[Rfam]
RNA sequence: ACAAUGAUACUUCUGACCGUUCAGGCUGCCACCGUAAAAGAGCAGCAAGUGAAAUUCUUAUGA
Numbered sequence: 001a002c003a004a005u006g007a008u009a010c011u012u013c014u015g016a017c018c019g020u021u022c023a024g025g026c027u028g029c030c031a032c033c034g035u036a037a038a039a040g041a042g043c044a045g046c047a048a049g050u051g052a053a054a055u056u057c058u059u060a061u062g063a
Base pairs, nucleotide, nucleotide: 012060013024014023015022016021025046026045027044029042047059048058049057
Rfam assigns this 63-nucleotide RNA sequence from Streptococcus pneumoniae to the family "pemK RNA". NCBI's taxonomy places the organism under Bacteria, Bacillati, Bacilli, Streptococcaceae, Streptococcus pneumoniae.